[Rfam]
RNA sequence: AGCUUUAAGUUAGCAGCCUGACUUGAAAGGCUGACGGCUGGUGAUUAAAAAAUCACCAGCCU
Numbered sequence: 001a002g003c004u005u006u007a008a009g010u011u012a013g014c015a016g017c018c019u020g021a022c023u024u025g026a027a028a029g030g031c032u033g034a035c036g037g038c039u040g041g042u043g044a045u046u047a048a049a050a051a052a053u054c055a056c057c058a059g060c061c062u
Stems, first nucleotide, its partner, number of pairs: 014033005036061010
Dot-bracket structure: .............(((((..........)))))..((((((((((......)))))))))).
RNA: Pseudomonas sRNA P26
Organism: Photorhabdus laumondii